[Rfam]
RNA: Small nucleolar RNA SNORA15
RNA sequence: GCAUGGCUGAAUGCUGUGUUCUUUAGUCAGUAAUUGACACAGCCAGACACCAUGCAAAAGUAAAGUCUUCCUUUAAGAUGGCUGAUAUUCUAUAUUUUAUGGUAUAUGAUCAUUAAAAGUGAGUAUAAGU
Numbered sequence: 001g002c003a004u005g006g007c008u009g010a011a012u013g014c015u016g017u018g019u020u021c022u023u024u025a026g027u028c029a030g031u032a033a034u035u036g037a038c039a040c041a042g043c044c045a046g047a048c049a050c051c052a053u054g055c056a057a058a059a060g061u062a063a064a065g066u067c068u069u070c071c072u073u074u075a076a077g078a079u080g081g082c083u084g085a086u087a088u089u090c091u092a093u094a095u096u097u098u099a100u101g102g103u104a105u106a107u108g109a110u111c112a113u114u115a116a117a118a119g120u121g122a123g124u125a126u127a128a129g130u
Base pairs, nucleotide, nucleotide: 001055002054003053004052005051006050014042015041016040017039018038019037068123069122070121071119072118073117074116075114076113083112084111085107086106087105088104090102091101092100